[Rfam]
RNA sequence: CGUGCGCACAAUCUGAAGGAAGCGUGAUGAGCAAAGUCCUGACCCGAGGAACACGAAUCGUAUCAGGCAUCCGAAGUGGGAUGAGUCUGCAAAACAAGACAAAAUCCAAUAAACUGCGCGGACACGGGGAUGUAAAUACGGCGGGUAUAUGGGAUGAAAGUUACGUGU
Numbered sequence: 001c002g003u004g005c006g007c008a009c010a011a012u013c014u015g016a017a018g019g020a021a022g023c024g025u026g027a028u029g030a031g032c033a034a035a036g037u038c039c040u041g042a043c044c045c046g047a048g049g050a051a052c053a054c055g056a057a058u059c060g061u062a063u064c065a066g067g068c069a070u071c072c073g074a075a076g077u078g079g080g081a082u083g084a085g086u087c088u089g090c091a092a093a094a095c096a097a098g099a100c101a102a103a104a105u106c107c108a109a110u111a112a113a114c115u116g117c118g119c120g121g122a123c124a125c126g127g128g129g130a131u132g133u134a135a136a137u138a139c140g141g142c143g144g145g146u147a148u149a150u151g152g153g154a155u156g157a158a159a160g161u162u163a164c165g166u167g168u
Stems, first nucleotide, its partner, number of pairs: 001006001022168005031161002036155006042146005058141005067133003071129002076125003079107004085100004